RNA sequence: UUCACGUAAUGUUAAAACAUCCGUAUAAUCUUGACAAUAUGGGUCAAGAGUUUCUACCAAGGUACCUUAAAUCUUUGACUAUGGAUGAAUCUAAGUUAAUA
Numbered sequence: 001u002u003c004a005c006g007u008a009a010u011g012u013u014a015a016a017a018c019a020u021c022c023g024u025a026u027a028a029u030c031u032u033g034a035c036a037a038u039a040u041g042g043g044u045c046a047a048g049a050g051u052u053u054c055u056a057c058c059a060a061g062g063u064a065c066c067u068u069a070a071a072u073c074u075u076u077g078a079c080u081a082u083g084g085a086u087g088a089a090u091c092u093a094a095g096u097u098a099a100u101a
Stems, first nucleotide, its partner, number of pairs: 018087008029049007058077005064072001
The family of this 101-nucleotide RNA sequence from Clostridium pasteurianum is "Purine riboswitch aptamer". Taxonomically the source falls in Clostridium pasteurianum (Bacteria, Clostridia, Eubacteriales, Clostridiaceae). Rfam 15.1 lists 4,097 matches to the family in 1,411 species.